This 271-nucleotide RNA sequence from Mytilinidion resinicola belongs to the Rfam family "Fungal signal recognition particle RNA". The match comes from Rfam's covariance-model search (130 bits). The family is grouped with related families in Rfam's "SRP clan". Rfam 15.1 lists 748 matches to the family in 741 species. Rfam links the family to the GO terms SRP-dependent cotranslational protein targeting to membrane, signal sequence recognition, signal recognition particle, endoplasmic reticulum targeting and signal recognition particle, plasma membrane targeting. The family's RNA type in Rfam is non-coding RNA gene. On this family, see Rosenblad et al., Nucleic Acids Res 2003: "SRPDB: Signal Recognition Particle Database".

RNA sequence: AACCUGUAGCGGGUCGCGGUCGGAAGGUGCAUCGACCAACCGCUCCGCCCCUCCCUGCAAAUGCUCGGUCAAGGGCCCAGUUCGAAUCCUGCGGUGUCCGUUCCACUCGCGCUGGUAACACGCGAUGCUGGUCGUACCUAAGCAAUGAGAUCUACUGUCGAGGGAAGCAAUUCUGCAGACGCGUUCUCACCGUGGGAUGGCGGCACUGGAAUACUCUCGGCCGGGCUGGGAUGGGUGGUGCGGGUGAUGUAUCAACCGACACAAAAAUAUU
Numbered sequence: 001a002a003c004c005u006g007u008a009g010c011g012g013g014u015c016g017c018g019g020u021c022g023g024a025a026g027g028u029g030c031a032u033c034g035a036c037c038a039a040c041c042g043c044u045c046c047g048c049c050c051c052u053c054c055c056u057g058c059a060a061a062u063g064c065u066c067g068g069u070c071a072a073g074g075g076c077c078c079a080g081u082u083c084g085a086a087u088c089c090u091g092c093g094g095u096g097u098c099c100g101u102u103c104c105a106c107u108c109g110c111g112c113u114g115g116u117a118a119c120a121c122g123c124g125a126u127g128c129u130g131g132u133c134g135u136a137c138c139u140a141a142g143c144a145a146u147g148a149g150a151u152c153u154a155c156u157g158u159c160g161a162g163g164g165a166a167g168c169a170a171u172u173c174u175g176c177a178g179a180c181g182c183g184u185u186c187u188c189a190c191c192g193u194g195g196g197a198u199g200g201c202g203g204c205a206c207u208g209g210a211a212u213a214c215u216c217u218c219g220g221c222c223g224g225g226c227u228g229g230g231a232u233g234g235g236u237g238g239u240g241c242g243g244g245u246g247a248u249g250u251a252u253c254a255a256c257c258g259a260c261a262c263a264a265a266a267a268u269a270u271u
Stems, first nucleotide, its partner, number of pairs: 002014003019260005026253007036246001040243004045238006052231002063226003067222004072217004077209005082203003086198009097136001099134002102131002104127002107125005113120002138142001146189005152183001156181004164173003